Small nucleolar RNA SNORD121A: an 83-nucleotide sequence from Ovis aries. The base pairs follow the family's consensus structure, which was predicted with WAR. A reference for the family is Yang et al. (2006), "snoSeeker: an advanced computational package for screening of guide and orphan snoRNA genes in the human genome", Nucleic Acids Res.
[Rfam]
RNA sequence: CUGCAGAAGACAGUGAUGCUUUAUUUCCAAGCACAUAUCUGAGUUGUAUGUGUGGAGGCACGAAAACUGAGUCUUUUCUGCAG
Dot-bracket structure: ((((((.((((...........................................................))))...))))))